[Rfam]
RNA sequence: AGGAGGAACAGCAGCAGUUGCUAUGGCAGCUCUGGAAGCCUGGAGUCAGCCUCUGCAGGAACUUCGGGGCUCGGGGCUCUCGGUUCUCUGUCUGCAGGGCCUGGAGGCUCCGGGGCGGG
Numbered sequence: 001a002g003g004a005g006g007a008a009c010a011g012c013a014g015c016a017g018u019u020g021c022u023a024u025g026g027c028a029g030c031u032c033u034g035g036a037a038g039c040c041u042g043g044a045g046u047c048a049g050c051c052u053c054u055g056c057a058g059g060a061a062c063u064u065c066g067g068g069g070c071u072c073g074g075g076g077c078u079c080u081c082g083g084u085u086c087u088c089u090g091u092c093u094g095c096a097g098g099g100c101c102u103g104g105a106g107g108c109u110c111c112g113g114g115g116c117g118g119g
Stems, first nucleotide, its partner, number of pairs: 002111004009103003012099001020077003024073002028071009039059004